[Rfam]
RNA sequence: AUAUUGUAAUGUUAGGUGAGGCUCCUAUUGAGAUAUACGCUGAUGCCCAGAAAUGUCGAGAGACGCCAAUGGGUUAACAAGUAUAAUCGCUAAGGUUAUAUUUAAUUCAGCUGACAAAAGGUCAAAGCUCAAUAGUGCUAAAGCUCAACAUAGAAGAAGAUUU
Numbered sequence: 001a002u003a004u005u006g007u008a009a010u011g012u013u014a015g016g017u018g019a020g021g022c023u024c025c026u027a028u029u030g031a032g033a034u035a036u037a038c039g040c041u042g043a044u045g046c047c048c049a050g051a052a053a054u055g056u057c058g059a060g061a062g063a064c065g066c067c068a069a070u071g072g073g074u075u076a077a078c079a080a081g082u083a084u085a086a087u088c089g090c091u092a093a094g095g096u097u098a099u100a101u102u103u104a105a106u107u108c109a110g111c112u113g114a115c116a117a118a119a120g121g122u123c124a125a126a127g128c129u130c131a132a133u134a135g136u137g138c139u140a141a142a143g144c145u146c147a148a149c150a151u152a153g154a155a156g157a158a159g160a161u162u163u
Stems, first nucleotide, its partner, number of pairs: 005159001007157001010154001011149002013093001015145003020139003025135008039111005045074005054065004080102004086096003113123003
A member of the RNA family "M-box riboswitch aptamer (ykoK leader)" from Crassaminicella thermophila, 163 nucleotides long. Rfam 15.1 lists 1,095 matches to the family in 932 species. Pairs were carried over by alignment from the consensus structure. It scores 133 bits against the family's covariance model. NCBI's taxonomy places the organism under Bacteria, Bacillati, Clostridia, Clostridiaceae, Crassaminicella. About the family: M-box riboswitch, also know as ykoK leader is described as a metaloregulatory RNA that sense divalent metals and function as a genetic control element of genes related to divalent metal transport in bacteria. It was first reported upstream of the B.subtilis ykoK gene and genes with related functions in other bacteria. A reference for the family is Ramesh and Winkler (2010), "Magnesium-sensing riboswitches in bacteria", RNA Biol.